[Rfam]
RNA: ACEA small nucleolar RNA U3
RNA sequence: UCGACUGUACUUUACAGGAUUAUGUAUACAGUCAAUUUUCAGUUUCUUUGUUCACCAAACAAAGACACACAUUCCAGGCUGGACGAUGACACACAGUGCGCUGUCUGUAAAGGGAGAAUAUAUUUUCUUUUAAGGAAGCUCGAUGAUCUUGCUUGUCUUGCGCCCUCGCUUCUGCUUUAUGCGGGAGCGGGAUUAGAGUGCGGCAUAGCGAGGACGGACGCACAUUCUGACAGCCU
Number, nucleotide and partner (000 for none) at each position: 001u000002c000003g038004a000005c000006u034007g000008u000009a032010c031011u030012u000013u000014a000015c000016a027017g000018g025019a000020u000021u000022a000023u000024g000025u018026a000027u016028a000029c000030a011031g010032u009033c000034a006035a000036u000037u000038u003039u000040c000041a000042g000043u067044u000045u065046c064047u063048u062049u061050g060051u059052u000053c000054a000055c000056c000057a000058a000059a051060c050061a049062a048063a047064g046065a045066c000067a043068c000069a000070c000071a000072u000073u000074c000075c000076a000077g235078g234079c233080u232081g231082g000083a000084c000085g000086a000087u000088g000089a000090c000091a000092c000093a000094c000095a000096g223097u222098g221099c220100g219101c217102u216103g215104u214105c213106u212107g000108u000109a000110a150111a149112g148113g147114g000115a000116g000117a000118a000119u000120a000121u136122a000123u000124u000125u000126u000127c000128u000129u000130u000131u000132a000133a000134g000135g000136a121137a000138g000139c000140u000141c000142g000143a000144u000145g000146a000147u113148c112149u111150u110151g000152c208153u207154u000155g000156u000157c203158u000159u000160g000161c000162g000163c000164c000165c000166u000167c000168g000169c000170u000171u000172c000173u000174g000175c000176u000177u000178u000179a000180u000181g000182c000183g000184g000185g000186a000187g000188c000189g000190g000191g000192a000193u000194u000195a000196g000197a000198g000199u000200g000201c000202g000203g157204c000205a000206u000207a153208g152209c000210g000211a000212g106213g105214a104215c103216g102217g101218a000219c100220g099221c098222a097223c096224a000225u000226u000227c000228u000229g000230a000231c081232a080233g079234c078235c077236u000